[Rfam]
RNA sequence: UGCCAUCGUCGUCGAUCUCUAUCAACUAUCCUUGCGACUAUGGCA
Numbered sequence: 001u002g003c004c005a006u007c008g009u010c011g012u013c014g015a016u017c018u019c020u021a022u023c024a025a026c027u028a029u030c031c032u033u034g035c036g037a038c039u040a041u042g043g044c045a
Stems, first nucleotide, its partner, number of pairs: 001045006008038005

This 45-nucleotide RNA from Alphaarterivirus equid belongs to the Rfam family "Equine arteritis virus leader TRS hairpin (LTH)". The organism belongs to Alphaarterivirus equid, within Viruses. It is one of the family's seed sequences. Pairs were carried over by alignment from the consensus structure, which is taken from published work. Rfam describes the family as follows. This family represents the equine arteritis virus leader transcription-regulating sequence hairpin (LTH). The LTH is thought to be a key structural element in discontinuous subgenomic RNA synthesis and is critical for leader TRS function. Rfam links the family to the GO term regulation of viral transcription. It is annotated as a cis-regulatory leader. For this family Rfam cites "Secondary structure and function of the 5'-proximal region of the equine arteritis virus RNA genome" (Van Den Born et al., RNA, 2004).